[Rfam]
RNA sequence: UCGUAUCUUCAGGGAUGGGUGCAAUUCCCUACCGGCGGUAAAGCCCGCGAGCGUCCGAUACGGACAGCAGAUCCGGUGAGAUUCCGGGGCCGACAGUACAGUCUGGAUGGAAGAAGAAGGAU
Numbered sequence: 001u002c003g004u005a006u007c008u009u010c011a012g013g014g015a016u017g018g019g020u021g022c023a024a025u026u027c028c029c030u031a032c033c034g035g036c037g038g039u040a041a042a043g044c045c046c047g048c049g050a051g052c053g054u055c056c057g058a059u060a061c062g063g064a065c066a067g068c069a070g071a072u073c074c075g076g077u078g079a080g081a082u083u084c085c086g087g088g089g090c091c092g093a094c095a096g097u098a099c100a101g102u103c104u105g106g107a108u109g110g111a112a113g114a115a116g117a118a119g120g121a122u
Stems, first nucleotide, its partner, number of pairs: 004119001006117005017029003031102002033092002035048004043090002051068002072088005094105003

The record is a 122-nucleotide sequence from Clostridium sp. SY8519, which matches "FMN riboswitch aptamer (RFN element)" in Rfam. For this family Rfam cites "Regulation of riboflavin biosynthesis and transport genes in bacteria by transcriptional and translational attenuation" (Vitreschak et al., Nucleic Acids Res, 2002).